[Rfam]
RNA sequence: GGCCUCCUGGUGCUUACCAUGGUCUGUGUUCUUGCUCUGACUGGUUAGAAAGAAGAGGCAGAGUAAACCUAUCCCAUAUACACCAUAGCCUAGGCCCCGUGCCUGGUCUGUAUUGUUAAUGGGGGGACAUGG
Numbered sequence: 001g002g003c004c005u006c007c008u009g010g011u012g013c014u015u016a017c018c019a020u021g022g023u024c025u026g027u028g029u030u031c032u033u034g035c036u037c038u039g040a041c042u043g044g045u046u047a048g049a050a051a052g053a054a055g056a057g058g059c060a061g062a063g064u065a066a067a068c069c070u071a072u073c074c075c076a077u078a079u080a081c082a083c084c085a086u087a088g089c090c091u092a093g094g095c096c097c098c099g100u101g102c103c104u105g106g107u108c109u110g111u112a113u114u115g116u117u118a119a120u121g122g123g124g125g126g127a128c129a130u131g132g
Stems, first nucleotide, its partner, number of pairs: 002059005008053001020043003026037001028035002072124006086110003090106006
RNA: Small nucleolar RNA SNORA51